[Rfam]
RNA sequence: UUUGCAGUGGCAAACGGGUACGACCAGCUCCUGCUGAAUCCCCCAGGACCUGACGGUAGCAAGGGUAGGCGGUCGUAGCGGUGCGAUGCUUCGUUUGCCAUUUU
Numbered sequence: 001u002u003u004g005c006a007g008u009g010g011c012a013a014a015c016g017g018g019u020a021c022g023a024c025c026a027g028c029u030c031c032u033g034c035u036g037a038a039u040c041c042c043c044c045a046g047g048a049c050c051u052g053a054c055g056g057u058a059g060c061a062a063g064g065g066u067a068g069g070c071g072g073u074c075g076u077a078g079c080g081g082u083g084c085g086a087u088g089c090u091u092c093g094u095u096u097g098c099c100a101u102u103u104u
Stems, first nucleotide, its partner, number of pairs: 008100008016091005021085002023082002